[Rfam]
RNA sequence: GUGACACUCAAAUCAUGGCGGCACUUCCCUCCUGAACACCAGAAAGUGCCCCCACAGUUUGAGUGUCGC
Numbered sequence: 001g002u003g004a005c006a007c008u009c010a011a012a013u014c015a016u017g018g019c020g021g022c023a024c025u026u027c028c029c030u031c032c033u034g035a036a037c038a039c040c041a042g043a044a045a046g047u048g049c050c051c052c053c054a055c056a057g058u059u060u061g062a063g064u065g066u067c068g069c
Base pairs, nucleotide, nucleotide: 004066005065006064007063008062009061010060011059012058016054017053018052020050021049022048023047024046025045026043027042
Dot-bracket structure: ...(((((((((...(((.((((((((..............)).)))))).)))...)))))))))...
This 69-nucleotide RNA sequence from Erinaceus europaeus belongs to the Rfam family "mir-290 microRNA precursor family". Rfam links the family to the GO terms RISC complex and miRNA-mediated post-transcriptional gene silencing. Clan: mir-290 clan. Rfam 15.1 lists 565 matches to the family in 128 species.